[Rfam]
RNA sequence: CGACUCUGUAGCCCGGGGGAUCGGCCCCGGGGUAUCCACGGCCCGGCCGCAACCGGGCGAGUUGCGGGUAU
Numbered sequence: 001c002g003a004c005u006c007u008g009u010a011g012c013c014c015g016g017g018g019g020a021u022c023g024g025c026c027c028c029g030g031g032g033u034a035u036c037c038a039c040g041g042c043c044c045g046g047c048c049g050c051a052a053c054c055g056g057g058c059g060a061g062u063u064g065c066g067g068g069u070a071u
Base pairs, nucleotide, nucleotide: 003069004068005067006066012031013030014029015028016027017026018025041058042057043056044055045054046053